[Rfam]
RNA: raiA RNA
RNA sequence: AAGCCCCGGGUCUGUGGUUGCAAGUCGAUGCCAGUUGCAGGCGAAACGAUCCACGUAAGCAGCGAAGAUCGCUGUGAGCACGGUGCAGCUUAGAAGUAAGUCCUGCCGCGAAAAGCGAGAGGGGAAGUAGUGGGGAGCCAAGGCUUAGGAGCGAAACCUCCAGCAGGCGGGUGUGGGGUCGAAGACCAGGUCAGCCGGGCCGU
Numbered sequence: 001a002a003g004c005c006c007c008g009g010g011u012c013u014g015u016g017g018u019u020g021c022a023a024g025u026c027g028a029u030g031c032c033a034g035u036u037g038c039a040g041g042c043g044a045a046a047c048g049a050u051c052c053a054c055g056u057a058a059g060c061a062g063c064g065a066a067g068a069u070c071g072c073u074g075u076g077a078g079c080a081c082g083g084u085g086c087a088g089c090u091u092a093g094a095a096g097u098a099a100g101u102c103c104u105g106c107c108g109c110g111a112a113a114a115g116c117g118a119g120a121g122g123g124g125a126a127g128u129a130g131u132g133g134g135g136a137g138c139c140a141a142g143g144c145u146u147a148g149g150a151g152c153g154a155a156a157c158c159u160c161c162a163g164c165a166g167g168c169g170g171g172u173g174u175g176g177g178g179u180c181g182a183a184g185a186c187c188a189g190g191u192c193a194g195c196c197g198g199g200c201c202g203u
Stems, first nucleotide, its partner, number of pairs: 001203001003201001005199005012194003015188005028174003031041001033090007050083002058075001081181001102167005107117003121160004130152002136145003